[Rfam]
RNA sequence: AUACUUACCUGGCAAGGGAGAUGCCAUGGUCACAAAGGUGAUUUUUCCAGGAUGAGGUUUAUCCACUACACUCCAGAUAGGCUGACCCCUGUGAUUUUCCCAGAUGUGGAAAAGCUGGCAGCAUAAUUUUUGGUAGUGGGGGACUGUGUGUGUUUGUGUUUUCCCAUG
Numbered sequence: 001a002u003a004c005u006u007a008c009c010u011g012g013c014a015a016g017g018g019a020g021a022u023g024c025c026a027u028g029g030u031c032a033c034a035a036a037g038g039u040g041a042u043u044u045u046u047c048c049a050g051g052a053u054g055a056g057g058u059u060u061a062u063c064c065a066c067u068a069c070a071c072u073c074c075a076g077a078u079a080g081g082c083u084g085a086c087c088c089c090u091g092u093g094a095u096u097u098u099c100c101c102a103g104a105u106g107u108g109g110a111a112a113a114g115c116u117g118g119c120a121g122c123a124u125a126a127u128u129u130u131u132g133g134u135a136g137u138g139g140g141g142g143a144c145u146g147u148g149u150g151u152g153u154u155u156g157u158g159u160u161u162u163c164c165c166a167u168g
Stems, first nucleotide, its partner, number of pairs: 012122002016048006023042001025040003049090003054086001056083003060079004092117002095113003099109002138167001140165004146159005

Record summary: Shown here is a 168-nucleotide sequence from Urocitellus parryii, a member of the family "U1 spliceosomal RNA". It is annotated as a spliceosomal small nuclear RNA. From the family's description: U1 is a small nuclear RNA (snRNA) component of the spliceosome (involved in pre-mRNA splicing). Its 5' end forms complementary base pairs with the 5' splice junction, thus defining the 5' donor site of an intron. There are significant differences in sequence and secondary structure between metazoan and yeast U1 snRNAs, the latter being much longer (568 nucleotides as compared to 164 nucleotides in human).